A member of the RNA family "Alphaproteobacteria transfer-messenger RNA" from Palleronia caenipelagi, 351 nucleotides long. Bacterial tmRNA, also known as 10Sa RNA or SsrA, is named for its dual tRNA and mRNA-like properties. Rfam links the family to the GO term RNA catabolic process. The organism belongs to Palleronia, within Bacteria. The family's consensus secondary structure is taken from published work. Rfam classes the family as a non-coding RNA gene. The family is grouped with related families in Rfam's "tRNA clan".

[Rfam]
RNA sequence: UGGCUUGAAACAGCUGCGGCGAUCGCCCAUAUGUUGAGAGUUCCCUCGGGGACUAUGGACAUAAACGCGCACGUAAUAAGCGGAUCGGACCCGGGGGCGGUACCCGGCGGCUCCACCAAACGCCCAUCGUUGGGGGCACAUGGGGCCGAAACAGGAUCGACGGACGUCUAAAGGUGUUUGCUUUGUCCCGGUGAGGUACCACCGAUAUCGGUCCGUUAAGCAUAAUUGCCAACGACAAUCGUGCUCCGGUUGCGGUUGCUGCGUAAGCAGUACCCAAUACCGAACUUUAAGCCCUUGCCUCUAGCAAGGUAAGGCGGGGUUCGCAGGCACCUGGCAACAGAAGCCUGCACU
Numbered sequence: 001u002g003g004c005u006u007g008a009a010a011c012a013g014c015u016g017c018g019g020c021g022a023u024c025g026c027c028c029a030u031a032u033g034u035u036g037a038g039a040g041u042u043c044c045c046u047c048g049g050g051g052a053c054u055a056u057g058g059a060c061a062u063a064a065a066c067g068c069g070c071a072c073g074u075a076a077u078a079a080g081c082g083g084a085u086c087g088g089a090c091c092c093g094g095g096g097g098c099g100g101u102a103c104c105c106g107g108c109g110g111c112u113c114c115a116c117c118a119a120a121c122g123c124c125c126a127u128c129g130u131u132g133g134g135g136g137c138a139c140a141u142g143g144g145g146c147c148g149a150a151a152c153a154g155g156a157u158c159g160a161c162g163g164a165c166g167u168c169u170a171a172a173g174g175u176g177u178u179u180g181c182u183u184u185g186u187c188c189c190g191g192u193g194a195g196g197u198a199c200c201a202c203c204g205a206u207a208u209c210g211g212u213c214c215g216u217u218a219a220g221c222a223u224a225a226u227u228g229c230c231a232a233c234g235a236c237a238a239u240c241g242u243g244c245u246c247c248g249g250u251u252g253c254g255g256u257u258g259c260u261g262c263g264u265a266a267g268c269a270g271u272a273c274c275c276a277a278u279a280c281c282g283a284a285c286u287u288u289a290a291g292c293c294c295u296u297g298c299c300u301c302u303a304g305c306a307a308g309g310u311a312a313g314g315c316g317g318g319g320u321u322c323g324c325a326g327g328c329a330c331c332u333g334g335c336a337a338c339a340g341a342a343g344c345c346u347g348c349a350c351u
Stems, first nucleotide, its partner, number of pairs: 040053005057188005067181002069177004081166002085163003091107005108148007189204004195214002198212003317332004323348006